Shown here is a 164-nucleotide RNA sequence from Anopheles darlingi, a member of the family "U1 spliceosomal RNA".
The literature on the family includes a 1997 paper in Nucleic Acids Res by Zwieb, "The uRNA database".
The family's consensus secondary structure is taken from published work.
The source organism's lineage runs through Eukaryota, Opisthokonta, Dicondylia, Endopterygota and argyritarsis series.

[Rfam]
RNA sequence: AUACUUACCUGGCACAGGGGUUACCGUGAUCAUUAAGGCGGUUCCCCCAGGGCGAGGCCUUGCCAUUGCACUACGGCGGGGUUGACCCCUGCGAUUAUCCCUCAUGUGGAUAACUCGUGUGCGCAAUUUUUGGUAGCCGGGAAGUGCGUCCGCGCACAUCCCGA
Numbered sequence: 001a002u003a004c005u006u007a008c009c010u011g012g013c014a015c016a017g018g019g020g021u022u023a024c025c026g027u028g029a030u031c032a033u034u035a036a037g038g039c040g041g042u043u044c045c046c047c048c049a050g051g052g053c054g055a056g057g058c059c060u061u062g063c064c065a066u067u068g069c070a071c072u073a074c075g076g077c078g079g080g081g082u083u084g085a086c087c088c089c090u091g092c093g094a095u096u097a098u099c100c101c102u103c104a105u106g107u108g109g110a111u112a113a114c115u116c117g118u119g120u121g122c123g124c125a126a127u128u129u130u131u132g133g134u135a136g137c138c139g140g141g142a143a144g145u146g147c148g149u150c151c152g153c154g155c156a157c158a159u160c161c162c163g164a
Stems, first nucleotide, its partner, number of pairs: 012122004017047004023042005049090004054086001056083003060079005092117003095113003099109002138163005145156004
U1 is a small nuclear RNA (snRNA) component of the spliceosome (involved in pre-mRNA splicing). Its 5' end forms complementary base pairs with the 5' splice junction, thus defining the 5' donor site of an intron. There are significant differences in sequence and secondary structure between metazoan and yeast U1 snRNAs, the latter being much longer (568 nucleotides as compared to 164 nucleotides in human). Nevertheless, secondary structure predictions suggest that all U1 snRNAs share a 'common core' consisting of helices I, II, the proximal region of III, and IV. This family does not contain the larger yeast sequences.